[Rfam]
RNA: 5' ureB small RNA
RNA sequence: UCCUCGAUCUGCUGGGGCGCGAUGAGGUGGACGUGGCUGUCGAUGCCGCCGGCGGUGAGGAUCUUGCCGUUGCCGGCCAGGAUCUCGGUGGACGGACCGAUCACCAGAUUCUCGUCGACACCGUCCUGGGUGUCGGGGUUACCGGCCUUGCCGAUGCCGACGAUCCGGCCGUCCCGUACCCCGAUGUCGGCCUUGACGACGCCCCAGUGGUCGAGGAUCAGCGCGCCGGUGAUCACCAGGUCGGGGGCGCCGUCCGCGCGGGUGGCGCGGGACUGGCCCAUCGACUCGCGGA
Dot-bracket structure: (.(.(((..((.(((((((........(((.((.(..(....)..))))))...(((.......)))...))))((..(((.(....((((.(.(((....(....(((..(.......)..)))...)..)))..).)))).).)))..))....))).)).....((((..((((.((((.......((.(((........(........).....))).))....(.....(...((.........)).).....).)).)).))))...))))........))).)).